[Rfam]
RNA sequence: CUGGCUUUGAAGACAAACAGAAUAAAAACUUCAUGUUC
Numbered sequence: 001c002u003g004g005c006u007u008u009g010a011a012g013a014c015a016a017a018c019a020g021a022a023u024a025a026a027a028a029c030u031u032c033a034u035g036u037u038c
Stems, first nucleotide, its partner, number of pairs: 001020002006017003
Rfam assigns this 38-nucleotide RNA sequence from Equus caballus to the family "Renin stability regulatory element (REN-SRE)". Lineage of the source: Eukaryota > Deuterostomia > Teleostomi > Boreoeutheria > Equus. Rfam's curators write: This family represents a cis-acting element in the 3'-UTR of the renin (REN) gene called renin stability regulatory element (REN-SRE) which acts to regulate renin production.